The record is a 109-nucleotide RNA from Nicotiana sylvestris, which matches "Small nucleolar RNA Z279/snoR105/snoR108" in Rfam. This family includes the plant snoRNAs known as Z279, snoR105 and snoR108. Clan: snoU13 clan. NCBI's taxonomy places the organism under Eukaryota, Spermatophyta, Magnoliopsida, Solanales, Nicotiana. It scores 76 bits against the family's covariance model. The base pairs follow the family's consensus structure, which was predicted with PFOLD. It is annotated as a C/D-box small nucleolar RNA.

RNA sequence: GGGAUGUGAUGAGUGGUCGAUGCUCGCAAAUAAAAUAUGCGAGAAGGGUGUCACAGCCCAAAGCCUGGUUACGACAAUCUGGGCGCCUAGCUUUUACCAAUCUGAUCCC
Numbered sequence: 001g002g003g004a005u006g007u008g009a010u011g012a013g014u015g016g017u018c019g020a021u022g023c024u025c026g027c028a029a030a031u032a033a034a035a036u037a038u039g040c041g042a043g044a045a046g047g048g049u050g051u052c053a054c055a056g057c058c059c060a061a062a063g064c065c066u067g068g069u070u071a072c073g074a075c076a077a078u079c080u081g082g083g084c085g086c087c088u089a090g091c092u093u094u095u096a097c098c099a100a101u102c103u104g105a106u107c108c109c
Stems, first nucleotide, its partner, number of pairs: 001109004014099004023043005046088007067079003